[Rfam]
RNA: Small nucleolar RNA ACA64
RNA sequence: ACAGUUUGAAAAUCAGUUGGGGUCUCCUGUGGCCCCUGGUGCGGUAACUGUGCCGACAGCAGAGGGAGCAUUAAACUCAUUGCCCACAGUACAGUGUGGGGAAUGAAACCCAUGUUCCUAUAAUC
Numbered sequence: 001a002c003a004g005u006u007u008g009a010a011a012a013u014c015a016g017u018u019g020g021g022g023u024c025u026c027c028u029g030u031g032g033c034c035c036c037u038g039g040u041g042c043g044g045u046a047a048c049u050g051u052g053c054c055g056a057c058a059g060c061a062g063a064g065g066g067a068g069c070a071u072u073a074a075a076c077u078c079a080u081u082g083c084c085c086a087c088a089g090u091a092c093a094g095u096g097u098g099g100g101g102a103a104u105g106a107a108a109c110c111c112a113u114g115u116u117c118c119u120a121u122a123a124u125c
Stems, first nucleotide, its partner, number of pairs: 006050001008048001010045001014041002021034004065118001067116005077106005085098003